[Rfam]
Nucleotides: 427
Stems, first nucleotide, its partner, number of pairs: 024055001025053005035042002065072002076103005086094002106325004113152005119146001120143005125137003157266002160263004167259002170252002173249004182241005190206001192205004214218001221231002275296007302319005359366002382393004
Number, partner (000 for none) and nucleotide at each position: 001000c002000a003000a004000c005000c006000u007000g008000a009000a010000c011000u012000c013000a014000g015000a016000u017000g018000u019000g020000a021000u022000u023000a024055c025053c026052c027051g028050c029049u030000g031000a032000a033000c034000u035042u036041a037000a038000g039000c040000a041036u042035a043000u044000c045000a046000u047000u048000c049029a050028g051027c052026g053025g054000a055024g056000g057000a058000a059000a060000a061000g062000a063000a064000a065072c066071u067000a068000a069000c070000u071066a072065g073000g074000a075000u076103u077102c078101c079100c080099a081000a082000a083000g084000u085000a086094a087093c088000g089000g090000c091000g092000a093087g094086u095000g096000a097000a098000c099080u100079g101078g102077g103076a104000a105000a106325a107324g108323c109322c110000c111000a112000g113152c114151g115150c116149u117148g118000a119146a120143u121142c122141u123140u124139u125137c126136g127135a128000u129000a130000g131000u132000a133000u134000g135127u136126c137125g138000u139124a140123a141122a142121g143120a144000a145000a146119u147000g148117u149116a150115g151114c152113g153000u154000a155000u156000a157266g158265g159000c160263a161262u162261a163260a164000u165000u166000u167259u168258c169000g170252g171251c172000u173249u174248g175247u176246u177000u178000g179000g180000c181000a182241u183240g184239u185238c186237c187000a188000a189000a190206g191000u192205u193204c194203c195202u196000u197000u198000g199000a200000u201000a202195g203194g204193g205192a206190c207000c208000a209000u210000c211000a212000u213000c214218c215000a216000g217000a218214g219000a220000g221231g222230g223000u224000g225000c226000g227000a228000g229000g230222c231221c232000u233000g234000u235000g236000c237186g238185g239184a240183u241182a242000g243000c244000u245000g246176a247175a248174c249173g250000u251171g252170c253000c254000g255000u256000a257000u258168g259167a260163u261162u262161a263160u264000g265158c266157c267000u268000u269000g270000g271000a272000g273000u274000c275296g276295g277294g278293u279292u280291g281290c282000u283000u284000g285000a286000a287000a288000g289000u290281g291280c292279a293278g294277c295276c296275u297000u298000a299000a300000g301000u302319g303318g304317g305316u306315g307000a308000u309000a310000a311000a312000c313000u314000u315306c316305a317304u318303c319302u320000a321000a322109g323108g324107c325106u326000a327000a328000a329000u330000a331000c332000g333000g334000a335000c336000g337000u338000g339000a340000a341000u342000u343000c344000g345000a346000u347000a348000g349000c350000a351000a352000a353000c354000a355000a356000g357000u358000a359366c360365u361000g362000u363000g364000a365360a366359g367000g368000a369000a370000a371000g372000u373000u374000g375000c376000a377000a378000a379000g380000a381000a382393c383392u384391u385390u386000g387000a388000a389000g390385a391384g392383a393382g394000a395000g396000u397000u398000c399000a400000a401000g402000a403000g404000a405000a406000c407000g408000u409000g410000a411000a412000a413000u414000c415000g416000u417000u418000g419000a420000g421000g422000u423000g424000g425000a426000a427000c